[Rfam]
RNA sequence: AAAUAGACCUGCAGGAUCUCUUGAUUGGCACGUUGAUUUUACAUCUCACAACGUGUUCACCAUUACUUUGCCACCAAUAAUAGAGGAUAACUGAGAGGCAAUCAGACUUAGGUAGGAUUGUCUACUCAUGCACAGAAUCACCUUUCAUUAUCUAACAGUGCAUGAAGGUUAGAUAUUCCAUUGAAUGAACCGAGGCCACGCGGAGUACGAUCGAGGGUACAGUUCAAAAUCAACUUAAUUGUUGAACCACAAUUUAUCUAGUUAUGGAGAAUUUAAAGGAGUGUACGACUGGUUCGGUGUAGCACUCGCUCUUUAUGAGAAAGCGCCAUAACUACAUUAGUUGUGUGGGGGAUGAUUGGGUUUAAUUCAAUUGGCUUAAAUUGGGGGAGGUAGC
Numbered sequence: 001a002a003a004u005a006g007a008c009c010u011g012c013a014g015g016a017u018c019u020c021u022u023g024a025u026u027g028g029c030a031c032g033u034u035g036a037u038u039u040u041a042c043a044u045c046u047c048a049c050a051a052c053g054u055g056u057u058c059a060c061c062a063u064u065a066c067u068u069u070g071c072c073a074c075c076a077a078u079a080a081u082a083g084a085g086g087a088u089a090a091c092u093g094a095g096a097g098g099c100a101a102u103c104a105g106a107c108u109u110a111g112g113u114a115g116g117a118u119u120g121u122c123u124a125c126u127c128a129u130g131c132a133c134a135g136a137a138u139c140a141c142c143u144u145u146c147a148u149u150a151u152c153u154a155a156c157a158g159u160g161c162a163u164g165a166a167g168g169u170u171a172g173a174u175a176u177u178c179c180a181u182u183g184a185a186u187g188a189a190c191c192g193a194g195g196c197c198a199c200g201c202g203g204a205g206u207a208c209g210a211u212c213g214a215g216g217g218u219a220c221a222g223u224u225c226a227a228a229a230u231c232a233a234c235u236u237a238a239u240u241g242u243u244g245a246a247c248c249a250c251a252a253u254u255u256a257u258c259u260a261g262u263u264a265u266g267g268a269g270a271a272u273u274u275a276a277a278g279g280a281g282u283g284u285a286c287g288a289c290u291g292g293u294u295c296g297g298u299g300u301a302g303c304a305c306u307c308g309c310u311c312u313u314u315a316u317g318a319g320a321a322a323g324c325g326c327c328a329u330a331a332c333u334a335c336a337u338u339a340g341u342u343g344u345g346u347g348g349g350g351g352a353u354g355a356u357u358g359g360g361u362u363u364a365a366u367u368c369a370a371u372u373g374g375c376u377u378a379a380a381u382u383g384g385g386g387g388a389g390g391u392a393g394c
Base pairs, nucleotide, nucleotide: 050068051067055063056062092128093127094126095125096123097122098121099120100119101118102117103116106113107112141390142389143388144387145386146385147177149175150174151173152172153171154170155169156168179374180371181370182369183368184367185366187225188224189223190222195218196217197216199213200212201209202208237357238356239355240354241353242352243351248345249344250343251342252341253340254339259334260333261332262331263330264329265328266327267326279307280306281305282304283303284302286296287295288294309319310318311317
RNA: Deltacoronavirus 3'UTR
Organism: Deltacoronavirus gallinulae